[Rfam]
RNA sequence: ACCUUUUAAUCGCUGAAUUUGUGUAAAAACAAAGCGGAGGAACCAAUUUAUUGAUAAAUAGCAAUACUAUUUAUCUUGGGGUGAAUCUUAAAAGAUGGGGUACUCUCAGCCCCUAACCCGACAGCUAACUUCGUAAGCGUUUUAUAAGAGGGAAA
Number, nucleotide and partner (000 for none) at each position: 001a000002c000003c000004u000005u000006u000007u000008a000009a000010u000011c139012g138013c137014u136015g000016a000017a000018u033019u032020u031021g030022u029023g000024u000025a000026a000027a000028a000029a022030c021031a020032a019033a018034g134035c133036g132037g131038a130039g129040g000041a000042a000043c000044c078045a077046a000047u000048u000049u000050a000051u000052u000053g000054a000055u000056a000057a000058a000059u000060a000061g000062c000063a000064a000065u000066a000067c000068u000069a000070u000071u000072u000073a000074u000075c000076u000077u045078g044079g119080g118081g117082u000083g000084a000085a000086u000087c094088u093089u000090a000091a000092a000093a088094g087095a000096u000097g113098g112099g111100g110101u000102a000103c000104u000105c000106u000107c000108a000109g000110c100111c099112c098113c097114u000115a000116a000117c081118c080119c079120g000121a000122c000123a000124g000125c000126u000127a000128a000129c039130u038131u037132c036133g035134u034135a000136a014137g013138c012139g011140u000141u000142u000143u000144a000145u000146a000147a000148g000149a000150g000151g000152g000153a000154a000155a000